This 141-nucleotide RNA sequence from Carlito syrichta belongs to the Rfam family "U4 spliceosomal RNA". It is annotated as a spliceosomal small nuclear RNA. Clan: U4 clan. The organism belongs to Carlito, within Eukaryota. A search with the family's covariance model found it, with a score of 78 bits. U4 small nuclear RNA (U4 snRNA) is a component of the major U2-dependent spliceosome.
RNA sequence: AGCUUUGCACGGUGACGGUAUUGUAGCCAAUGAGAUUUAUCUGAGGCGUGAUUAUUGCUAAUUGAAAAUUUUCCCCAAUACCCUGCUGGGACAAUUUGCAAUAUGGUCAGCAUUGGCAAUUUUGGACAGUCUCUACAGAGA
Numbered sequence: 001a002g003c004u005u006u007g008c009a010c011g012g013u014g015a016c017g018g019u020a021u022u023g024u025a026g027c028c029a030a031u032g033a034g035a036u037u038u039a040u041c042u043g044a045g046g047c048g049u050g051a052u053u054a055u056u057g058c059u060a061a062u063u064g065a066a067a068a069u070u071u072u073c074c075c076c077a078a079u080a081c082c083c084u085g086c087u088g089g090g091a092c093a094a095u096u097u098g099c100a101a102u103a104u105g106g107u108c109a110g111c112a113u114u115g116g117c118a119a120u121u122u123u124g125g126a127c128a129g130u131c132u133c134u135a136c137a138g139a140g141a
Stems, first nucleotide, its partner, number of pairs: 020052005026047003034042001085117003088113001090111001094107003130141004